Background:
Rfam assigns this 112-nucleotide RNA sequence from Lupinus angustifolius to the family "MIR398 microRNA precursor family". For this family Rfam cites "Computational identification of plant microRNAs and their targets, including a stress-induced miRNA" (Jones-Rhoades and Bartel, Mol Cell, 2004). A search with the family's covariance model found it, with a score of 64 bits.
[Rfam]
RNA sequence: AGGGGUUCUACAGGGUCGUCCUGAGAACACAUGAUUGUUGCUGAGAUAAUGAUUUGGUGCGUAUAUUGUAUACUUAGCUCAUAUGUUCUCAGGUCGCCCCUGCUGAACUUUU
Numbered sequence: 001a002g003g004g005g006u007u008c009u010a011c012a013g014g015g016u017c018g019u020c021c022u023g024a025g026a027a028c029a030c031a032u033g034a035u036u037g038u039u040g041c042u043g044a045g046a047u048a049a050u051g052a053u054u055u056g057g058u059g060c061g062u063a064u065a066u067u068g069u070a071u072a073c074u075u076a077g078c079u080c081a082u083a084u085g086u087u088c089u090c091a092g093g094u095c096g097c098c099c100c101u102g103c104u105g106a107a108c109u110u111u112u
Base pairs, nucleotide, nucleotide: 007106008105011102012101013100014099017096018095023090024089025088026087027086028085029084031082032081033080034079